[Rfam]
RNA sequence: ACAUCUGUAGGCGAUGGAGCUCGCCACAACCGCCGACCAGGCUGAUGGCUCCUACCCCGGG
Numbered sequence: 001a002c003a004u005c006u007g008u009a010g011g012c013g014a015u016g017g018a019g020c021u022c023g024c025c026a027c028a029a030c031c032g033c034c035g036a037c038c039a040g041g042c043u044g045a046u047g048g049c050u051c052c053u054a055c056c057c058c059g060g061g
Stems, first nucleotide, its partner, number of pairs: 010025004016052006032042003